RNA: ybhL leader
RNA sequence: CAGGCAUGCUGGAGCCCCGCCAGCGGCGCCUGGGUCCGGUGGAUUUACGUCCCAACAGGACCUGACACCGGACGGGGCAGAA
Numbered sequence: 001c002a003g004g005c006a007u008g009c010u011g012g013a014g015c016c017c018c019g020c021c022a023g024c025g026g027c028g029c030c031u032g033g034g035u036c037c038g039g040u041g042g043a044u045u046u047a048c049g050u051c052c053c054a055a056c057a058g059g060a061c062c063u064g065a066c067a068c069c070g071g072a073c074g075g076g077g078c079a080g081a082a
Stems, first nucleotide, its partner, number of pairs: 014078006024070003031064004036059001